The record is a 187-nucleotide sequence from Siminovitchia fortis, which matches "Lysine riboswitch aptamer" in Rfam.
[Rfam]
RNA sequence: UAAGUUGAUAGAGGCGCAAACCUUAAAGAGUAGUAAUCCGGAGAAGCAUGGGCUUUGAGGAAGGGUUAUGAAAGGGAAGGAUUGCCGAAGUGAAAAUAAACCCCAUGAUUAUUUUUGCUGGUUCUGUUAUUGAAUAAAUGCAGAAUUGUCAGUAUGAAAUGAUUCAUACUGGAGGGCUAUCUCAUGU
Numbered sequence: 001u002a003a004g005u006u007g008a009u010a011g012a013g014g015c016g017c018a019a020a021c022c023u024u025a026a027a028g029a030g031u032a033g034u035a036a037u038c039c040g041g042a043g044a045a046g047c048a049u050g051g052g053c054u055u056u057g058a059g060g061a062a063g064g065g066u067u068a069u070g071a072a073a074g075g076g077a078a079g080g081a082u083u084g085c086c087g088a089a090g091u092g093a094a095a096a097u098a099a100a101c102c103c104c105a106u107g108a109u110u111a112u113u114u115u116u117g118c119u120g121g122u123u124c125u126g127u128u129a130u131u132g133a134a135u136a137a138a139u140g141c142a143g144a145a146u147u148g149u150c151a152g153u154a155u156g157a158a159a160u161g162a163u164u165c166a167u168a169c170u171g172g173a174g175g176g177c178u179a180u181c182u183c184a185u186g187u
Stems, first nucleotide, its partner, number of pairs: 007181005016085004021080004033069007089119011120147007128140004149172007
The match comes from Rfam's covariance-model search (121 bits).